[Rfam]
RNA sequence: UGUGUGUUGGAGGAUGAAAACUUUGAGUGAUCCAUCGGCUGAGUGAUUUGUCACAAUGCUGAGACUCAAGUUGCUGACAGCACACA
Number, nucleotide and partner (000 for none) at each position: 001u000002g085003u084004g083005u082006g081007u080008u079009g075010g074011a000012g033013g032014a031015u030016g000017a028018a000019a000020a000021c000022u000023u000024u000025g000026a000027g000028u017029g000030a015031u014032c013033c012034a000035u062036c061037g060038g059039c058040u000041g000042a000043g054044u053045g052046a000047u000048u000049u000050g000051u000052c045053a044054c043055a000056a000057u000058g039059c038060u037061g036062a035063g000064a000065c000066u000067c000068a000069a000070g000071u000072u000073g000074c010075u009076g000077a000078c000079a008080g007081c006082a005083c004084a003085c002086a000
RNA: Small nucleolar RNA SNORD71